The family of this 73-nucleotide RNA from Massilia sp. BSC265 is "SAH (S-adenosyl-L-homocysteine) riboswitch aptamer".
A search with the family's covariance model found it, with a score of 59 bits.
Pairs were carried over by alignment from the consensus structure, which is taken from published work.
RNA sequence: GAUUCCGAGGAGCGUUGCGACGAAGAUUCCCAUCUUCGCCAGGCUCGGAUAUCAGCAACCGCGCUCACGUUAC
Numbered sequence: 001g002a003u004u005c006c007g008a009g010g011a012g013c014g015u016u017g018c019g020a021c022g023a024a025g026a027u028u029c030c031c032a033u034c035u036u037c038g039c040c041a042g043g044c045u046c047g048g049a050u051a052u053c054a055g056c057a058a059c060c061g062c063g064c065u066c067a068c069g070u071u072a073c
Stems, first nucleotide, its partner, number of pairs: 004049005021038006